A member of the RNA family "Small nucleolar RNA snoR8a" from Panicum hallii, 85 nucleotides long.
NCBI's taxonomy places the organism under Eukaryota, Viridiplantae, Mesangiospermae, Poaceae, Panicum hallii.
The base pairs follow the family's consensus structure, which was predicted with WAR.
It scores 61 bits against the family's covariance model.
Gene Ontology terms of the family: RNA processing and nucleolus.
[Rfam]
RNA sequence: CUGGUGCGGUGAUUAUAAAACAUUCCUCGUCCUGACGGGAGAUCCCCCGUGAUCGACUCCUUUACACCCAUAGAAUCUGAGCACC
Numbered sequence: 001c002u003g004g005u006g007c008g009g010u011g012a013u014u015a016u017a018a019a020a021c022a023u024u025c026c027u028c029g030u031c032c033u034g035a036c037g038g039g040a041g042a043u044c045c046c047c048c049g050u051g052a053u054c055g056a057c058u059c060c061u062u063u064a065c066a067c068c069c070a071u072a073g074a075a076u077c078u079g080a081g082c083a084c085c
Stems, first nucleotide, its partner, number of pairs: 003085004